About this RNA
The family of this 99-nucleotide RNA sequence from Clostridium amylolyticum is "TPP riboswitch aptamer (THI element)". Rfam's curators write: Vitamin B(1) in its active form thiamin pyrophosphate (TPP) is an essential coenzyme that is synthesised by coupling of pyrimidine and thiazole moieties in bacteria. NCBI's taxonomy places the organism under Bacteria, Bacillati, Clostridia, Clostridiaceae, Clostridium. A search with the family's covariance model found it, with a score of 71 bits.

RNA sequence: AAGGUGUGCUAGGGGUGCCUGUGGCUGAGAAAUGAGCAAUCAUUAACCCUUUUACCUGAUCUGGAUAGUACCAGCGUAGGGAAGCGUUAUUUACGUUAA
Numbered sequence: 001a002a003g004g005u006g007u008g009c010u011a012g013g014g015g016u017g018c019c020u021g022u023g024g025c026u027g028a029g030a031a032a033u034g035a036g037c038a039a040u041c042a043u044u045a046a047c048c049c050u051u052u053u054a055c056c057u058g059a060u061c062u063g064g065a066u067a068g069u070a071c072c073a074g075c076g077u078a079g080g081g082a083a084g085c086g087u088u089a090u091u092u093a094c095g096u097u098a099a
Stems, first nucleotide, its partner, number of pairs: 006087005011050004017025003032043004055080004061074004
Dot-bracket structure: .....(((((((((..(((...)))......((((....))))...))))....((((..((((......))))..))))..)))))............